[Rfam]
RNA sequence: AAGCAGGAUCUAAUUACAACGUAGCUGAGAAGUGCUGCAUUGUCUUUGCCCCCUGCUCAAAAUAAGACUGUUUCCUUUCAAGUCCUGUCUGCUGUGCCACUGUAGCACCCAGGGAUGCGUGGUUUCAUACAC
Number, nucleotide and partner (000 for none) at each position: 001a000002a000003g056004c055005a054006g053007g052008a000009u000010c000011u000012a000013a000014u000015u000016a043017c042018a041019a040020c000021g038022u037023a036024g035025c034026u000027g000028a000029g000030a000031a000032g000033u000034g025035c024036u023037g022038c021039a000040u019041u018042g017043u016044c000045u000046u000047u000048g000049c000050c000051c000052c007053c006054u005055g004056c003057u000058c000059a000060a000061a000062a000063u000064a000065a000066g000067a000068c000069u000070g000071u000072u000073u000074c000075c000076u000077u000078u000079c000080a000081a000082g000083u000084c113085c112086u111087g110088u000089c000090u107091g106092c105093u000094g000095u000096g000097c000098c000099a000100c000101u000102g000103u000104a000105g092106c091107a090108c000109c000110c087111a086112g085113g084114g000115a000116u000117g000118c000119g000120u000121g000122g000123u000124u000125u000126c000127a000128u000129a000130c000131a000132c000
RNA: Small nucleolar RNA SNORA63